Shown here is a 132-nucleotide RNA sequence from Kribbella sp. VKM Ac-2500, a member of the family "ALIL pseudoknot". The source organism's lineage runs through Bacteria, Bacillati, Actinomycetota, Actinomycetes and Kribbella. Pairs were carried over by alignment from the consensus structure, which is taken from published work. It scores 72 bits against the family's covariance model. The literature on the family includes a 2008 paper in J Biol Chem by Mazauric et al., "Apical loop-internal loop RNA pseudoknots: a new type of stimulator of -1 translational frameshifting in bacteria".
RNA sequence: AGCAACUUUCUUCGCGGCGGAGCUCGACCGCCCACAUCAGUGAUCGUGGUGUUCAUCAGCGAUCACAGGGGACAGUUCGGGGUCGAGCCGAUCUGCAGGGUGCUCACCGAGCACGGCUGCAAGAUCGCCCCG
Numbered sequence: 001a002g003c004a005a006c007u008u009u010c011u012u013c014g015c016g017g018c019g020g021a022g023c024u025c026g027a028c029c030g031c032c033c034a035c036a037u038c039a040g041u042g043a044u045c046g047u048g049g050u051g052u053u054c055a056u057c058a059g060c061g062a063u064c065a066c067a068g069g070g071g072a073c074a075g076u077u078c079g080g081g082g083u084c085g086a087g088c089c090g091a092u093c094u095g096c097a098g099g100g101u102g103c104u105c106a107c108c109g110a111g112c113a114c115g116g117c118u119g120c121a122a123g124a125u126c127g128c129c130c131c132g
Stems, first nucleotide, its partner, number of pairs: 016032005078132005089127002092124002094121005